[Rfam]
RNA sequence: AGGUUAAUAUAUGUCUUACCGAAGACAGUAGGGGGCGUGAGCCUUAAUCAUCCUACCGAGGAAGAAUCCAGUUAAGAUUGAACGGAUCCUCUAUGUCUAGGUGGCAUAGAGUUUUUUUAUUUUAUAA
Number, nucleotide and partner (000 for none) at each position: 001a000002g000003g000004u000005u000006a000007a000008u000009a000010u000011a000012u000013g000014u000015c000016u000017u000018a000019c000020c000021g000022a000023a000024g000025a000026c000027a000028g056029u055030a054031g053032g052033g051034g043035g042036c041037g000038u000039g000040a000041g036042c035043c034044u000045u000046a000047a000048u000049c000050a000051u033052c032053c031054u030055a029056c028057c000058g000059a000060g000061g000062a000063a000064g000065a000066a000067u000068c000069c000070a000071g000072u000073u000074a000075a000076g000077a000078u000079u000080g000081a000082a000083c000084g000085g000086a000087u000088c000089c111090u110091c109092u108093a107094u106095g105096u104097c103098u000099a000100g000101g000102u000103g097104g096105c095106a094107u093108a092109g091110a090111g089112u000113u000114u000115u000116u000117u000118u000119a000120u000121u000122u000123u000124a000125u000126a000127a000
RNA: Ribosomal protein L10 leader